[Rfam]
The family of this 199-nucleotide sequence from Dasypus novemcinctus is "Mnt IRES". By type it is an internal ribosome entry site. The sequence is in the family's curated seed alignment. Gene Ontology term of the family: ribosome binding. This family represents the Mnt internal ribosome entry site (IRES). Mnt is a transcriptional repressor related to the Myc/Mad family of transcription factors. It is thought that this family allows efficient Mnt synthesis when cap-dependent translation initiation is reduced.
RNA sequence: UUUACAUUUGCAAACUUUGGGAGACAUGUUUUUUUUUUUUUAUUUCCCGUGCUCCCUGUUCUCCUGAGAGUCCGCUGCGCCGCCCAGCCUGUCGCCCCCGGAGGUGAGCCCUCCCUCCUGCCUGCUGCCAGCUGACCUGUGCCCGGCUCGCGGGCAGCAGCCUCUGCCCGGCGAGCCCCCGGCAGCUGUCGGCGCGAUG
Numbered sequence: 001u002u003u004a005c006a007u008u009u010g011c012a013a014a015c016u017u018u019g020g021g022a023g024a025c026a027u028g029u030u031u032u033u034u035u036u037u038u039u040u041u042a043u044u045u046c047c048c049g050u051g052c053u054c055c056c057u058g059u060u061c062u063c064c065u066g067a068g069a070g071u072c073c074g075c076u077g078c079g080c081c082g083c084c085c086a087g088c089c090u091g092u093c094g095c096c097c098c099c100g101g102a103g104g105u106g107a108g109c110c111c112u113c114c115c116u117c118c119u120g121c122c123u124g125c126u127g128c129c130a131g132c133u134g135a136c137c138u139g140u141g142c143c144c145g146g147c148u149c150g151c152g153g154g155c156a157g158c159a160g161c162c163u164c165u166g167c168c169c170g171g172c173g174a175g176c177c178c179c180c181g182g183c184a185g186c187u188g189u190c191g192g193c194g195c196g197a198u199g
Stems, first nucleotide, its partner, number of pairs: 023040002026037001048074002051071004078173005100114005124155001125153004130148004